[Rfam]
Nucleotides: 081
Base pairs, nucleotide, nucleotide: 003079004078006076007075008074009073010072011071012070013069014068015067016066017065018064020061021060022058023057024056025055026054027053028052031051032050033049
Number, partner (000 for none) and nucleotide at each position: 001000a002000u003079c004078u005000c006076u007075g008074g009073u010072u011071a012070g013069u014068u015067u016066u017065g018064c019000u020061g021060g022058u023057u024056u025055g026054c027053a028052u029000c030000c031051a032050g033049c034000u035000u036000u037000a038000a039000c040000u041000g042000u043000a044000c045000u046000g047000u048000u049033g050032c051031u052028g053027u054026g055025c056024a057023a058022a059000u060021c061020c062000a063000u064018g065017c066016a067015a068014a069013a070012c071011u072010g073009a074008c075007u076006a077000u078004a079003g080000c081000a